[Rfam]
RNA: mir-1426 microRNA precursor family
Organism: Tyto alba
RNA sequence: CCCGGUUGAUCCUCUUUCCUUAACUCAUGCCGCUGUGCCUUUUUAUUUGUUUCACAAUUGUGUGAGUUGAGUAGAGAGUGUCAGUCUG
Numbered sequence: 001c002c003c004g005g006u007u008g009a010u011c012c013u014c015u016u017u018c019c020u021u022a023a024c025u026c027a028u029g030c031c032g033c034u035g036u037g038c039c040u041u042u043u044u045a046u047u048u049g050u051u052u053c054a055c056a057a058u059u060g061u062g063u064g065a066g067u068u069g070a071g072u073a074g075a076g077a078g079u080g081u082c083a084g085u086c087u088g
Stems, first nucleotide, its partner, number of pairs: 004086007012078002019071010034056004